[Rfam]
RNA sequence: GCGGUCCGCCUCGUGGACGACCCUGACCCUAGGCCCCGGUCCCGGCUACCCUGGCGGCGUGCGCCCUCCGCGGGAAGCCCGUCCCAGGGCAUUCACGCGUAGCGCAAAGCCGACAGCCGUCGCACUCCAGGGAGCCCUUACAUG
Numbered sequence: 001g002c003g004g005u006c007c008g009c010c011u012c013g014u015g016g017a018c019g020a021c022c023c024u025g026a027c028c029c030u031a032g033g034c035c036c037c038g039g040u041c042c043c044g045g046c047u048a049c050c051c052u053g054g055c056g057g058c059g060u061g062c063g064c065c066c067u068c069c070g071c072g073g074g075a076a077g078c079c080c081g082u083c084c085c086a087g088g089g090c091a092u093u094c095a096c097g098c099g100u101a102g103c104g105c106a107a108a109g110c111c112g113a114c115a116g117c118c119g120u121c122g123c124a125c126u127c128c129a130g131g132g133a134g135c136c137c138u139u140a141c142a143u144g
Stems, first nucleotide, its partner, number of pairs: 060106004067101001069099004109123002112121003
About this RNA
A member of the RNA family "Streptomyces-metH RNA" from Streptomyces sp. AS58, 144 nucleotides long.